[Rfam]
RNA: Rhodo-rpoB RNA
RNA sequence: GGAUCGGGAGGCGGCCUGUGGGAGGGCUGCCAGGUAUGGAUCUGAACCCCCAUUUCGAACGGUGCGCGAGCCGAAGCCCGGCGGCUACGCGC
Numbered sequence: 001g002g003a004u005c006g007g008g009a010g011g012c013g014g015c016c017u018g019u020g021g022g023a024g025g026g027c028u029g030c031c032a033g034g035u036a037u038g039g040a041u042c043u044g045a046a047c048c049c050c051c052a053u054u055u056c057g058a059a060c061g062g063u064g065c066g067c068g069a070g071c072c073g074a075a076g077c078c079c080g081g082c083g084g085c086u087a088c089g090c091g092c
Stems, first nucleotide, its partner, number of pairs: 001043005010031008064092005069086005